RNA sequence: AGAGGUGCAAGGUCAUAGAAGGAGCCUGUAUGGCAUGGCCCUGUCAGAUUCCAAUGAAUCUAUGAAUUCUGCU
Numbered sequence: 001a002g003a004g005g006u007g008c009a010a011g012g013u014c015a016u017a018g019a020a021g022g023a024g025c026c027u028g029u030a031u032g033g034c035a036u037g038g039c040c041c042u043g044u045c046a047g048a049u050u051c052c053a054a055u056g057a058a059u060c061u062a063u064g065a066a067u068u069c070u071g072c073u
Stems, first nucleotide, its partner, number of pairs: 011041002013038001017073002020070004024034003046061006
A member of the RNA family "Mammalian CPEB3 ribozyme" from Alligator sinensis, 73 nucleotides long. Rfam's curators write: The mammalian CPEB3 ribozyme is a self cleaving RNA located in the second intron of the CPEB3 gene which belongs to a family of genes regulating messenger RNA polyadenylation.